[Rfam]
RNA sequence: UGAAGCAGAACAUCGGCUAAGUUUGCGCCCUCGUGGCGCAACGCCGAUGGACUCGCUCCUACGAG
Numbered sequence: 001u002g003a004a005g006c007a008g009a010a011c012a013u014c015g016g017c018u019a020a021g022u023u024u025g026c027g028c029c030c031u032c033g034u035g036g037c038g039c040a041a042c043g044c045c046g047a048u049g050g051a052c053u054c055g056c057u058c059c060u061a062c063g064a065g
Stems, first nucleotide, its partner, number of pairs: 011049007025039005052065004
Shown here is a 65-nucleotide RNA from Lederbergia galactosidilytica, a member of the family "Bacillaceae-1 RNA". Lineage of the source: Bacteria > Bacillota > Bacilli > Bacillaceae > Lederbergia. The match comes from Rfam's covariance-model search (42 bits). The family's consensus secondary structure is taken from published work.